[Rfam]
RNA sequence: UGGACAUAUUAUUGUAUUCACAGUGUGAAACAGGGGAUUACACUGUUUUUAAACGGAAAGUGUAUCAAUUAACAUAAUAGACUCCU
Numbered sequence: 001u002g003g004a005c006a007u008a009u010u011a012u013u014g015u016a017u018u019c020a021c022a023g024u025g026u027g028a029a030a031c032a033g034g035g036g037a038u039u040a041c042a043c044u045g046u047u048u049u050u051a052a053a054c055g056g057a058a059a060g061u062g063u064a065u066c067a068a069u070u071a072a073c074a075u076a077a078u079a080g081a082c083u084c085c086u
Base pairs, nucleotide, nucleotide: 002085003084004083009080010079011078012077013076014075015074017072018071019062020061021060024055025054026053027049028048029047030046031045032044033043

Shown here is an 86-nucleotide sequence from Nicotiana sylvestris, a member of the family "MIR6152 microRNA precursor family".